[Rfam]
RNA: bZIP non canonical Hac1/Xbp1 intron
RNA sequence: CGCCUCCUCCGACCUGACACAACGUCCUGCAGAGAUGUUGUGCGACCUGCAGUGUCACACGUCGGUGGAGGCG
Numbered sequence: 001c002g003c004c005u006c007c008u009c010c011g012a013c014c015u016g017a018c019a020c021a022a023c024g025u026c027c028u029g030c031a032g033a034g035a036u037g038u039u040g041u042g043c044g045a046c047c048u049g050c051a052g053u054g055u056c057a058c059a060c061g062u063c064g065g066u067g068g069a070g071g072c073g
Stems, first nucleotide, its partner, number of pairs: 001073007009065005021039006044056003